[Rfam]
RNA sequence: AAUUGGGGUAGAGGCGCAAGCGGAAUCAGUACACUUUUGGAGCGGUGGCAGCGAUGAGCAAAGUGGAAAGGUCUAUUGCCGAAGCGUGGAAUGAGCGCCAACUCAUCCAUAGCUGGGUCGCUGUUGAAGAAGCAGCGGACUGUCACUGCAUGGUGCAGUGGAGAACUAUUCUGGUG
Numbered sequence: 001a002a003u004u005g006g007g008g009u010a011g012a013g014g015c016g017c018a019a020g021c022g023g024a025a026u027c028a029g030u031a032c033a034c035u036u037u038u039g040g041a042g043c044g045g046u047g048g049c050a051g052c053g054a055u056g057a058g059c060a061a062a063g064u065g066g067a068a069a070g071g072u073c074u075a076u077u078g079c080c081g082a083a084g085c086g087u088g089g090a091a092u093g094a095g096c097g098c099c100a101a102c103u104c105a106u107c108c109a110u111a112g113c114u115g116g117g118u119c120g121c122u123g124u125u126g127a128a129g130a131a132g133c134a135g136c137g138g139a140c141u142g143u144c145a146c147u148g149c150a151u152g153g154u155g156c157a158g159u160g161g162a163g164a165a166c167u168a169u170u171c172u173g174g175u176g
Stems, first nucleotide, its partner, number of pairs: 006171006016079004022074003032065006083114003089108001091106004115141002118138008143161007
Notes: Rfam assigns this 176-nucleotide sequence from Halalkalibacter oceani to the family "Lysine riboswitch aptamer". Taxonomically the source falls in Halalkalibacter (Bacteria, Bacillati, Bacillota, Caryophanales). Pairs were carried over by alignment from the consensus structure, which is taken from published work. A search with the family's covariance model found it, with a score of 102 bits.